A member of the RNA family "Small nucleolar RNA snoR104" from Triticum aestivum, 112 nucleotides long. The family has 8 seed sequences and 612 matches in Rfam 15.1. The family's RNA type in Rfam is H/ACA-box small nucleolar RNA. The match comes from Rfam's covariance-model search (42 bits). The organism belongs to Triticum, within Eukaryota.

[Rfam]
RNA sequence: UGGAAGAAAAUGAUAAGAUGCCUACCCGGUAGUGUUCAUAGAGUAAAAUUUUCAUUGCCUGCUUGUGGUACUGUAAGCAAGUGCUGGAAGUCUCAAAUGAUAAGACAACUUC
Numbered sequence: 001u002g003g004a005a006g007a008a009a010a011u012g013a014u015a016a017g018a019u020g021c022c023u024a025c026c027c028g029g030u031a032g033u034g035u036u037c038a039u040a041g042a043g044u045a046a047a048a049u050u051u052u053c054a055u056u057g058c059c060u061g062c063u064u065g066u067g068g069u070a071c072u073g074u075a076a077g078c079a080a081g082u083g084c085u086g087g088a089a090g091u092c093u094c095a096a097a098u099g100a101u102a103a104g105a106c107a108a109c110u111u112c
Base pairs, nucleotide, nucleotide: 002026003025005023006022012021050105051104052103061091062090063089064088066086067085068084070082071081072080